mir-22 microRNA precursor family: an 84-nucleotide RNA from Callorhinchus milii.
The family has 48 seed sequences and 884 matches in Rfam 15.1.
Lineage of the source: Eukaryota > Metazoa > Deuterostomia > Callorhinchidae > Callorhinchus.
Pairs were carried over by alignment from the consensus structure, which was predicted with RNAalifold.
It scores 78 bits against the family's covariance model.
On this family, see Lagos-Quintana et al., Science 2001: "Identification of novel genes coding for small expressed RNAs".
[Rfam]
RNA sequence: UGCCGUGUCACAGUCGUUCUUCACUGGCUAGCUUUAGUGCUUCACUCGGGUAAAGCUGCCAGUUGAAGAGCUGUUGUGGACGAC
Numbered sequence: 001u002g003c004c005g006u007g008u009c010a011c012a013g014u015c016g017u018u019c020u021u022c023a024c025u026g027g028c029u030a031g032c033u034u035u036a037g038u039g040c041u042u043c044a045c046u047c048g049g050g051u052a053a054a055g056c057u058g059c060c061a062g063u064u065g066a067a068g069a070g071c072u073g074u075u076g077u078g079g080a081c082g083a084c
Base pairs, nucleotide, nucleotide: 005081006080010077011076012075017070018069019068020067021066022065026060027059028058030057031056032055033054034053035052036051